[Rfam]
RNA: Small nucleolar RNA SNORD10
RNA sequence: GCUCUGUGAUGAACCCCAUGCGUGUCAUCUGAGCCCAGCUUCCUUCCCUGUGGCCUUUCCCCAGGUGGUGUUCUACUUACCAGGGCUGUCGUCUGGCCUGGCAGGGAGGCCUUGGGCAAAGGAUCAGUCCUUACAUUCUGAGAGC
Numbered sequence: 001g002c003u004c005u006g007u008g009a010u011g012a013a014c015c016c017c018a019u020g021c022g023u024g025u026c027a028u029c030u031g032a033g034c035c036c037a038g039c040u041u042c043c044u045u046c047c048c049u050g051u052g053g054c055c056u057u058u059c060c061c062c063a064g065g066u067g068g069u070g071u072u073c074u075a076c077u078u079a080c081c082a083g084g085g086c087u088g089u090c091g092u093c094u095g096g097c098c099u100g101g102c103a104g105g106g107a108g109g110c111c112u113u114g115g116g117c118a119a120a121g122g123a124u125c126a127g128u129c130c131u132u133a134c135a136u137u138c139u140g141a142g143a144g145c
Base pairs, nucleotide, nucleotide: 001145002144003143004142044108045107046106047105048104049103050102051101